RNA sequence: AUCAUGGAGAGUUUGAUCCUGGCUCAGAACGAACGCUGGCGGCGCGUUUUAAGCAUGCAAGUCGAACGGUAAGGCCCUUCGGGGUACACGAGUGGCGAACGGGUGAGUAACACGUGGGUGACCUGCCCAGAGGUUGGGGAUAGCCUGUGGAAACACAGGGUAAUACCGAAUAAGCUUAUGCACUAUGGUGCGAUAAGGAAAGGGGCUUCGGCCUCGCCUUUGGAUGGGCCCGCGUCUGAUUAGUUAGUUGGUGGGGUAACGGCCUACCAAGACCGCGAUCAGUAGCCGGCCUGAGAGGGUGAUCGGCCACACUGGGACUGAGAUACGGCCCAGACUCCUACGGGAGGCAGCAGCUAAGAAUCUUCCGCAAUGGACGAAAGUCUGACGGAGCGACGCCGCGUGGGUGAAGAAGGCAGGAAUGUUGUAAAGCCCUUUUCUAGCUGAGGAAUAAGGAUGGGAGGUAAUGCCCGUCUGAUGACGUUAAGCUAGGAAUAAGCCCCGGCUAAUUACGUGCCAGCAGCCGCGGUAACACGUAAGGGGCGAGCGUUGUUCGGAAUUAUUG
Numbered sequence: 001a002u003c004a005u006g007g008a009g010a011g012u013u014u015g016a017u018c019c020u021g022g023c024u025c026a027g028a029a030c031g032a033a034c035g036c037u038g039g040c041g042g043c044g045c046g047u048u049u050u051a052a053g054c055a056u057g058c059a060a061g062u063c064g065a066a067c068g069g070u071a072a073g074g075c076c077c078u079u080c081g082g083g084g085u086a087c088a089c090g091a092g093u094g095g096c097g098a099a100c101g102g103g104u105g106a107g108u109a110a111c112a113c114g115u116g117g118g119u120g121a122c123c124u125g126c127c128c129a130g131a132g133g134u135u136g137g138g139g140a141u142a143g144c145c146u147g148u149g150g151a152a153a154c155a156c157a158g159g160g161u162a163a164u165a166c167c168g169a170a171u172a173a174g175c176u177u178a179u180g181c182a183c184u185a186u187g188g189u190g191c192g193a194u195a196a197g198g199a200a201a202g203g204g205g206c207u208u209c210g211g212c213c214u215c216g217c218c219u220u221u222g223g224a225u226g227g228g229c230c231c232g233c234g235u236c237u238g239a240u241u242a243g244u245u246a247g248u249u250g251g252u253g254g255g256g257u258a259a260c261g262g263c264c265u266a267c268c269a270a271g272a273c274c275g276c277g278a279u280c281a282g283u284a285g286c287c288g289g290c291c292u293g294a295g296a297g298g299g300u301g302a303u304c305g306g307c308c309a310c311a312c313u314g315g316g317a318c319u320g321a322g323a324u325a326c327g328g329c330c331c332a333g334a335c336u337c338c339u340a341c342g343g344g345a346g347g348c349a350g351c352a353g354c355u356a357a358g359a360a361u362c363u364u365c366c367g368c369a370a371u372g373g374a375c376g377a378a379a380g381u382c383u384g385a386c387g388g389a390g391c392g393a394c395g396c397c398g399c400g401u402g403g404g405u406g407a408a409g410a411a412g413g414c415a416g417g418a419a420u421g422u423u424g425u426a427a428a429g430c431c432c433u434u435u436u437c438u439a440g441c442u443g444a445g446g447a448a449u450a451a452g453g454a455u456g457g458g459a460g461g462u463a464a465u466g467c468c469c470g471u472c473u474g475a476u477g478a479c480g481u482u483a484a485g486c487u488a489g490g491a492a493u494a495a496g497c498c499c500c501g502g503c504u505a506a507u508u509a510c511g512u513g514c515c516a517g518c519a520g521c522c523g524c525g526g527u528a529a530c531a532c533g534u535a536a537g538g539g540g541c542g543a544g545c546g547u548u549g550u551u552c553g554g555a556a557u558u559a560u561u562g
Stems, first nucleotide, its partner, number of pairs: 009025005027552004032548006039399006045392002047357001052355003056352003061096003066093002069089002074085004103310003112235008122227002127223007135169001137167002144159006175197005180191004202215005236282003243273003248270008285307004289300004312333005335346004363389001365388003371384005402432004412423004437489006446479001452473006496541005507536005517524002